[Rfam]
A member of the RNA family "FMN riboswitch aptamer (RFN element)" from Neokomagataea tanensis, 158 nucleotides long. The base pairs follow the family's consensus structure, which is taken from published work.

RNA sequence: AAACGUUCUCAGGGCGGGGUGUAAUUCCCCACCGGCGGUAAUGUAUGGCACUAGCUUUACAAAGCCCGCGAGCGCCCCAGUCACACAAGACUGGGGGUCAAGCAGAUCCGGUGUAAUUCCGGAGCCGACGGUCAUAGUCCGGAUGAAAGAGAACGCAG
Numbered sequence: 001a002a003a004c005g006u007u008c009u010c011a012g013g014g015c016g017g018g019g020u021g022u023a024a025u026u027c028c029c030c031a032c033c034g035g036c037g038g039u040a041a042u043g044u045a046u047g048g049c050a051c052u053a054g055c056u057u058u059a060c061a062a063a064g065c066c067c068g069c070g071a072g073c074g075c076c077c078c079a080g081u082c083a084c085a086c087a088a089g090a091c092u093g094g095g096g097g098u099c100a101a102g103c104a105g106a107u108c109c110g111g112u113g114u115a116a117u118u119c120c121g122g123a124g125c126c127g128a129c130g131g132u133c134a135u136a137g138u139c140c141g142g143a144u145g146a147a148a149g150a151g152a153a154c155g156c157a158g
Base pairs, nucleotide, nucleotide: 004155005154006153007152008151009150010149017029018028019027031138032137033127034126035069036068037067038066064125065124072103073102107123108122109121110120111119129141130140131139
Its family is annotated with FMN binding in the Gene Ontology.